[Rfam]
RNA sequence: CUGCACUCGUACAUAGGCCUCCCUCUACUUGGUAGUGUGGCCUUAAGCGUUCGUGCAGAAAUUAAUAGCUGUUAAAUCAGCGGCGGCCAGACAACCGCUGAGAUGGAUCCACAGGUGAAUAGCCUGAAGUGCUGCUUGCCUACUAAAUCCAUCUUACAUAU
Numbered sequence: 001c002u003g004c005a006c007u008c009g010u011a012c013a014u015a016g017g018c019c020u021c022c023c024u025c026u027a028c029u030u031g032g033u034a035g036u037g038u039g040g041c042c043u044u045a046a047g048c049g050u051u052c053g054u055g056c057a058g059a060a061a062u063u064a065a066u067a068g069c070u071g072u073u074a075a076a077u078c079a080g081c082g083g084c085g086g087c088c089a090g091a092c093a094a095c096c097g098c099u100g101a102g103a104u105g106g107a108u109c110c111a112c113a114g115g116u117g118a119a120u121a122g123c124c125u126g127a128a129g130u131g132c133u134g135c136u137u138g139c140c141u142a143c144u145a146a147a148u149c150c151a152u153c154u155u156a157c158a159u160a161u
Stems, first nucleotide, its partner, number of pairs: 002057005008049003015044003019040002023037001025035003100155008118137002122133001

A member of the RNA family "small nucleolar RNA snoR143" from Corymbia citriodora, 161 nucleotides long. Lineage of the source: Eukaryota > Embryophyta > Pentapetalae > Corymbia > Corymbia citriodora. Rfam 15.1 lists 660 matches to the family in 212 species. For this family Rfam cites "Mining small RNA sequencing data: a new approach to identify small nucleolar RNAs in Arabidopsis" (Chen and Wu, Nucleic Acids Res, 2009). Rfam classes the family as an H/ACA-box small nucleolar RNA.